[Rfam]
RNA sequence: GAUAGUGAACUUAAUAUCUCUCAUAUAAUACCUGGGAAUAUGGCCCGAAAGUUUCUACCCAAUAACCGUAAAUUAUUGGACUAUGAGAGAAAGUGAUUCCUUU
Numbered sequence: 001g002a003u004a005g006u007g008a009a010c011u012u013a014a015u016a017u018c019u020c021u022c023a024u025a026u027a028a029u030a031c032c033u034g035g036g037a038a039u040a041u042g043g044c045c046c047g048a049a050a051g052u053u054u055c056u057a058c059c060c061a062a063u064a065a066c067c068g069u070a071a072a073u074u075a076u077u078g079g080a081c082u083a084u085g086a087g088a089g090a091a092a093g094u095g096a097u098u099c100c101u102u103u
Base pairs, nucleotide, nucleotide: 018089019088020087021086022085023084024083025082029050032047034046035045036044059079060078061077062076063075064074065073